[Rfam]
Nucleotides: 137
Stems, first nucleotide, its partner, number of pairs: 001059004005054004015048006022041003025037002072130001074128004083120002088115001090111006
Number, partner (000 for none) and nucleotide at each position: 001059g002058c003057a004056u005054g006053g007052u008051a009000a010000u011000g012000g013000a014000u015048u016047u017046a018045u019044g020043g021000u022041g023040g024039g025037c026036c027000c028000u029000u030000c031000u032000c033000c034000g035000u036026g037025g038000g039024c040023u041022u042000c043020u044019c045018a046017u047016a048015g049000u050000g051008u052007a053006c054005c055000c056004a057003u058002g059001c060000c061000a062000g063000a064000a065000g066000a067000a068000a069000u070000u071000g072130c073000u074128g075127c076126c077125u078000a079000g080000a081000a082000c083120c084119a085000u086000u087000g088115c089000c090111c091110a092109g093108c094107c095106u096000c097000c098000u099000u100000a101000c102000u103000u104000g105000u106095g107094g108093g109092c110091u111090g112000u113000c114000a115088g116000c117000a118000c119084u120083g121000a122000a123000g124000a125077g126076g127075g128074u129000u130072g131000u132000a133000c134000a135000g136000u137000a
This 137-nucleotide RNA sequence from Myotis myotis belongs to the Rfam family "Small nucleolar RNA SNORA42/SNORA80 family". Gene Ontology terms of the family: nucleolus and RNA processing. The match comes from Rfam's covariance-model search (130 bits). Pairs were carried over by alignment from the consensus structure, which was predicted with RNAalifold. The members of this family belong to the H/ACA class of snoRNAs that guide the sites of modification of uridines to pseudouridines. Human ACA42 (SNORA42) was cloned from HeLa cells by immunoprecipitation with anti-GAR1 antibody. The source organism's lineage runs through Eukaryota, Bilateria, Vertebrata, Teleostomi and Myotis. The family's RNA type in Rfam is H/ACA-box small nucleolar RNA.